Repression of heat shock gene expression (ROSE) element: a 68-nucleotide RNA sequence from Pseudomonas sp. BAY1663. The pairing is the family consensus, mapped onto this sequence. A reference for the family is Krajewski et al. (2013), "Short ROSE-Like RNA Thermometers Control IbpA Synthesis in Pseudomonas Species", PLoS One. By type it is an RNA thermoregulator. Its family is annotated with regulation of translation and response to temperature stimulus in the Gene Ontology.

RNA sequence: UGUGGAAUGCCGAAUUCGGGUUCCGCCUCAUGACUUUGCUGAAAUCUCAGGAGGUUUGCAUCAUGACU
Numbered sequence: 001u002g003u004g005g006a007a008u009g010c011c012g013a014a015u016u017c018g019g020g021u022u023c024c025g026c027c028u029c030a031u032g033a034c035u036u037u038g039c040u041g042a043a044a045u046c047u048c049a050g051g052a053g054g055u056u057u058g059c060a061u062c063a064u065g066a067c068u
Stems, first nucleotide, its partner, number of pairs: 002026007010019003030055002035053003039050004